Nucleotides: 370
Base pairs, nucleotide, nucleotide: 001366002365003364004363005362006361007360019339020338021337022336023335025334026333027332032327033326034325035324036323037322043314044313045312046311047310048068049067050066051065052064054083055082056081057080058079059078060077118142119141122138123137124136125135126134149185150184151183152182153181154180156176157175160172161171164198165197166196167195168194169193202230203229204228205227206226207225208224209223210222214245217242219240247285248284249283250282251281254280255279256278261272264306265305266304267303268302269301270300343359344358345357346356347355
Number, partner (000 for none) and nucleotide at each position: 001366g002365g003364g004363g005362c006361u007360g008000a009000u010000c011000g012000g013000u014000u015000u016000c017000g018000a019339c020338a021337g022336c023335g024000c025334c026333u027332g028000c029000g030000a031000a032327g033326c034325u035324g036323c037322g038000g039000g040000a041000a042000g043314c044313g045312g046311g047310c048068c049067g050066a051065g052064g053000a054083u055082g056081c057080a058079g059078g060077g061000u062000u063000a064052u065051c066050u067049c068048g069000u070000u071000a072000a073000c074000g075000a076000u077060c078059u079058c080057u081056g082055c083054g084000a085000a086000c087000c088000a089000a090000u091000a092000a093000g094000u095000g096000c097000c098000g099000a100000u101000g102000c103000a104000a105000a106000g107000c108000g109000c110000a111000c112000u113000g114000a115000c116000u117000u118142c119141g120000c121000c122138c123137u124136c125135g126134c127000u128000g129000c130000c131000u132000a133000a134126g135125c136124g137123a138122g139000c140000c141119c142118g143000a144000u145000a146000g147000u148000c149185c150184g151183u152182c153181a154180g155000a156176c157175c158000g159000u160172g161171u162000g163000u164198g165197a166196u167195u168194c169193c170000g171161a172160c173000a174000c175157g176156g177000a178000u179000c180154c181153u182152g183151g184150c185149g186000u187000c188000a189000u190000c191000u192000a193169g194168g195167a196166a197165u198164c199000u200000u201000g202230c203229u204228g205227u206226g207225u208224g209223a210222c211000g212000g213000c214245g215000u216000c217242u218000g219240g220000a221000c222210g223209u224208c225207a226206c227205a228204c229203g230202g231000g232000a233000c234000u235000c236000u237000u238000c239000c240219c241000a242217g243000a244000c245214u246000g247285g248284g249283c250282c251281u252000g253000u254280c255279g256278a257000c258000u259000u260000a261272g262000g263000u264306g265305u266304c267303u268302g269301u270300g271000a272261c273000a274000a275000a276000g277000g278256u279255c280254g281251g282250g283249g284248c285247c286000g287000a288000g289000c290000a291000g292000a293000a294000c295000g296000u297000c298000u299000c300270u301269a302268c303267a304266g305265a306264c307000u308000g309000c310047g311046c312045c313044c314043g315000g316000a317000g318000a319000a320000g321000a322037c323036g324035c325034a326033g327032u328000a329000u330000c331000a332027c333026a334025g335023c336022g337021u338020u339019g340000g341000a342000c343359g344358g345357g346356g347355g348000u349000u350000c351000g352000a353000u354000u355347c356346c357345c358344c359343c360007c361006a362005g363004c364003u365002c366001c367000a368000c369000g370000a
Rfam assigns this 370-nucleotide sequence from Microbacterium sp. TNHR37B to the family "transfer-messenger RNA". It is annotated as a non-coding RNA gene. A reference for the family is Felden et al. (1997), "Probing the structure of the Escherichia coli 10Sa RNA (tmRNA)", RNA. NCBI's taxonomy places the organism under Bacteria, Bacillati, Actinomycetota, Micrococcales, Microbacterium. Pairs were carried over by alignment from the consensus structure, which is taken from published work. About the family: Bacterial tmRNA, also known as 10Sa RNA or SsrA, is named for its dual tRNA and mRNA-like properties. Its role is to liberate the mRNA from a stalled ribosome.